[Rfam]
A member of the RNA family "permuted transfer-messenger RNA" from Synechococcus sp. CC9311, 184 nucleotides long. Bacterial tmRNA, also known as 10Sa RNA or SsrA, is named for its dual tRNA and mRNA-like properties. Its role is to liberate the mRNA from a stalled ribosome. To accomplish this part of the tmRNA is used as a reading frame that ends in a translation stop signal. The broken mRNA is replaced in the ribosome by the tmRNA and translation of the tmRNA leads to addition of a proteolysis tag to the incomplete protein enabling recognition by a protease. Rfam classes the family as a non-coding RNA gene.
RNA sequence: GGUGGUCCACACCGGUGUUUCGGACAGCGGUUCGAUUCCGCUCAGCUCCAUUCUCCCUUCGGGGCUGCAAUGGUUUCGACGGGGCAUAAGGAGGGUGACUGAAGCCUGCUCGGUAAGAGCAAAUCCCGUAACUGCGAACAACAUCGUACGUUUCUCCCGUCAAGCAGCCCCUGUUGCUGCCUGA
Numbered sequence: 001g002g003u004g005g006u007c008c009a010c011a012c013c014g015g016u017g018u019u020u021c022g023g024a025c026a027g028c029g030g031u032u033c034g035a036u037u038c039c040g041c042u043c044a045g046c047u048c049c050a051u052u053c054u055c056c057c058u059u060c061g062g063g064g065c066u067g068c069a070a071u072g073g074u075u076u077c078g079a080c081g082g083g084g085c086a087u088a089a090g091g092a093g094g095g096u097g098a099c100u101g102a103a104g105c106c107u108g109c110u111c112g113g114u115a116a117g118a119g120c121a122a123a124u125c126c127c128g129u130a131a132c133u134g135c136g137a138a139c140a141a142c143a144u145c146g147u148a149c150g151u152u153u154c155u156c157c158c159g160u161c162a163a164g165c166a167g168c169c170c171c172u173g174u175u176g177c178u179g180c181c182u183g184a
Stems, first nucleotide, its partner, number of pairs: 001100003005096001016086003020082003026042005043067007